[Rfam]
RNA sequence: AAUUGUCCCUAGGGGUGCCGCGAGGCUGAGACGAACGUUCCGUUCGGACCCUUUGAACCUGAUCUGGUUAAACCCAGCGUAGGAAAGCGGAGAAUGAAUGAA
Numbered sequence: 001a002a003u004u005g006u007c008c009c010u011a012g013g014g015g016u017g018c019c020g021c022g023a024g025g026c027u028g029a030g031a032c033g034a035a036c037g038u039u040c041c042g043u044u045c046g047g048a049c050c051c052u053u054u055g056a057a058c059c060u061g062a063u064c065u066g067g068u069u070a071a072a073c074c075c076a077g078c079g080u081a082g083g084a085a086a087g088c089g090g091a092g093a094a095u096g097a098a099u100g101a102a
Base pairs, nucleotide, nucleotide: 006090007089009087010086011052012051013050014049016046017026018025019024033045034044035043036042037041058083059082060081061080064077065076066075067074
The record is a 102-nucleotide sequence from Paenibacillus graminis, which matches "TPP riboswitch aptamer (THI element)" in Rfam.
Taxonomically the source falls in Paenibacillus (Bacteria, Bacilli, Caryophanales, Paenibacillaceae).